Background:
mir-399 microRNA precursor family: a 104-nucleotide sequence from Zea mays. The match comes from Rfam's covariance-model search (65 bits). mir-399 was identified in both Arabidopsis thaliana and Oryza sativa computationally and was later experimentally verified. mir-399 is thought to target mRNAs coding for a phosphatase transporter. The mature sequence is excised from the 3' arm of the hairpin. Its family is annotated with RISC complex and miRNA-mediated post-transcriptional gene silencing in the Gene Ontology. The source organism's lineage runs through Eukaryota, Tracheophyta, Spermatophyta, commelinids and Zea.
RNA sequence: GUGAGAAUCACAGUGCGGUUCUCCUCUGGCACGAAGGCUGGCCAGAGCAGCUUAUAUUGCCACCACCCUUCCUUGCCAAAGGAGAAUUGCCCUGCCAUUCACAA
Number, nucleotide and partner (000 for none) at each position: 001g000002u000003g000004a000005g100006a099007a098008u097009c000010a000011c094012a093013g092014u000015g090016c089017g088018g087019u086020u000021c084022u083023c082024c081025u000026c000027u078028g077029g076030c075031a074032c000033g072034a000035a070036g069037g068038c000039u000040g000041g000042c000043c000044a000045g000046a000047g000048c000049a000050g000051c000052u000053u000054a000055u000056a000057u000058u000059g000060c000061c000062a000063c000064c000065a000066c000067c000068c037069u036070u035071c000072c033073u000074u031075g030076c029077c028078a027079a000080a000081g024082g023083a022084g021085a000086a019087u018088u017089g016090c015091c000092c013093u012094g011095c000096c000097a008098u007099u006100c005101a000102c000103a000104a000